[Rfam]
The record is a 101-nucleotide sequence from Photorhabdus laumondii, which matches "Tryptophan operon leader" in Rfam. The family's RNA type in Rfam is cis-regulatory leader. Rfam's curators put it in the seed alignment. Rfam's curators write: At least 6 amino acid operons are known to be regulated by attenuation. In each a leader sequence of 150-200 bp is found upstream of the first gene in the operon. This leader sequence can assume two different secondary structures known as the terminator and the anti-terminator structure. In each case the leader also codes for very short peptide sequence that is rich in the end product amino acid of the operon. The base pairs follow the family's consensus structure, which is taken from published work. On this family, see Kolter and Yanofsky, Annu Rev Genet 1982: "Attenuation in amino acid biosynthetic operons".
RNA sequence: AUCCGUUGGUGGCAUAACUUCCCAGUAAGGGCGGUAUGGUCACGCACAUAAAUCAACAGUGCCAAAUUACCAAAACCCGCCUAAUCAGCGGGUUUUUUUAU
Numbered sequence: 001a002u003c004c005g006u007u008g009g010u011g012g013c014a015u016a017a018c019u020u021c022c023c024a025g026u027a028a029g030g031g032c033g034g035u036a037u038g039g040u041c042a043c044g045c046a047c048a049u050a051a052a053u054c055a056a057c058a059g060u061g062c063c064a065a066a067u068u069a070c071c072a073a074a075a076c077c078c079g080c081c082u083a084a085u086c087a088g089c090g091g092g093u094u095u096u097u098u099u100a101u
Stems, first nucleotide, its partner, number of pairs: 009043004014037003018033001020031003074094007